RNA sequence: ACUUGUUUUGCUGGUUGUCAUCUAACCAUCGUUCAGUCUGCCGUCUGUAAGCUUGGUGCAUGGAUGGAUGCCUGGGUCUGGGUGCAUGGCGAUUGCGCCGACAGACAGACGGUGGUGAUGGUUAGAUGACCAUCAGCAAACAUGUU
Number, nucleotide and partner (000 for none) at each position: 001a000002c000003u000004u000005g141006u140007u139008u138009u000010g137011c136012u135013g134014g133015u132016u000017g130018u129019c128020a127021u126022c125023u124024a123025a122026c121027c120028a119029u118030c117031g116032u115033u114034c000035a000036g000037u000038c000039u000040g000041c000042c000043g000044u000045c000046u000047g000048u000049a000050a000051g000052c000053u000054u000055g000056g000057u000058g000059c000060a000061u000062g000063g000064a000065u000066g000067g000068a000069u000070g000071c000072c000073u000074g000075g000076g000077u000078c000079u000080g000081g000082g000083u000084g000085c000086a000087u000088g000089g000090c000091g000092a000093u000094u000095g000096c000097g000098c000099c000100g000101a000102c000103a000104g000105a000106c000107a000108g000109a000110c000111g000112g000113u000114g033115g032116u031117g030118a029119u028120g027121g026122u025123u024124a023125g022126a021127u020128g019129a018130c017131c000132a015133u014134c013135a012136g011137c010138a008139a007140a006141c005142a000143u000144g000145u000146u000
Rfam assigns this 146-nucleotide sequence from Triticum aestivum to the family "MIR827 microRNA precursor family". Its family is annotated with RISC complex and miRNA-mediated post-transcriptional gene silencing in the Gene Ontology. Lineage of the source: Eukaryota > Petrosaviidae > Triticeae > Triticinae > Triticum.